[Rfam]
RNA sequence: UGCGGUCUUGUCAAAUUCGGUGUCUCCUCUCAAUGGAGAGCACUGGCCAAAAUGGCUGCAACAGUGAGUAGUAGUCUAUGUGCCCUUCUUUCAUUUCAUUGAAAAAUUGGGAACAGUUCAGUCUACUUACACAG
Numbered sequence: 001u002g003c004g005g006u007c008u009u010g011u012c013a014a015a016u017u018c019g020g021u022g023u024c025u026c027c028u029c030u031c032a033a034u035g036g037a038g039a040g041c042a043c044u045g046g047c048c049a050a051a052a053u054g055g056c057u058g059c060a061a062c063a064g065u066g067a068g069u070a071g072u073a074g075u076c077u078a079u080g081u082g083c084c085c086u087u088c089u090u091u092c093a094u095u096u097c098a099u100u101g102a103a104a105a106a107u108u109g110g111g112a113a114c115a116g117u118u119c120a121g122u123c124u125a126c127u128u129a130c131a132c133a134g
Base pairs, nucleotide, nucleotide: 002059003058004057005056018045019044020043021042022041023040025036026035071126072125073124074123076121083111084110085109086106087105

Shown here is a 134-nucleotide RNA from Danionella cerebrum, a member of the family "Small nucleolar RNA SNORA5". Clan: SNORA5 clan. By type it is an H/ACA-box small nucleolar RNA. The match comes from Rfam's covariance-model search (56 bits). Lineage of the source: Eukaryota > Bilateria > Neopterygii > Teleostei > Danionella. Rfam describes the family as follows. ACA5 is a member of the H/ACA class of snoRNA that guide the sites of modification of uridines to pseudouridines.